[Rfam]
RNA sequence: UCGCACAUCUUGUUGUCUGGUUAUUGAUUUUUCGCAGAACCAUUUGAUCACAUGACAAGAUGUGCAUCUA
Numbered sequence: 001u002c003g004c005a006c007a008u009c010u011u012g013u014u015g016u017c018u019g020g021u022u023a024u025u026g027a028u029u030u031u032u033c034g035c036a037g038a039a040c041c042a043u044u045u046g047a048u049c050a051c052a053u054g055a056c057a058a059g060a061u062g063u064g065c066a067u068c069u070a
Stems, first nucleotide, its partner, number of pairs: 003065014018050002035046004
About this RNA:
RNA-OUT: a 70-nucleotide RNA sequence from Photobacterium sp. TC21. A reference for the family is Kittle et al. (1989), "Insertion sequence IS10 anti-sense pairing initiates by an interaction between the 5' end of the target RNA and a loop in the anti-sense RNA", J Mol Biol. Pairs were carried over by alignment from the consensus structure, which was predicted with PFOLD.